A member of the RNA family "Purine riboswitch aptamer" from Paenibacillus albidus, 104 nucleotides long.
The organism belongs to Paenibacillus, within Bacteria.
RNA sequence: AAACGAACAUUUAUAUCAACUCAUAUAAUCUUGGGAAUAGGGCCCAUAAGUUUCUACCGGAUAACCAUUGUAAUUAUCCGACUAUGAGUGAAAUAGCGCGUCUA
Numbered sequence: 001a002a003a004c005g006a007a008c009a010u011u012u013a014u015a016u017c018a019a020c021u022c023a024u025a026u027a028a029u030c031u032u033g034g035g036a037a038u039a040g041g042g043c044c045c046a047u048a049a050g051u052u053u054c055u056a057c058c059g060g061a062u063a064a065c066c067a068u069u070g071u072a073a074u075u076a077u078c079c080g081a082c083u084a085u086g087a088g089u090g091a092a093a094u095a096g097c098g099c100g101u102c103u104a
Stems, first nucleotide, its partner, number of pairs: 019089007029049001032046004058080007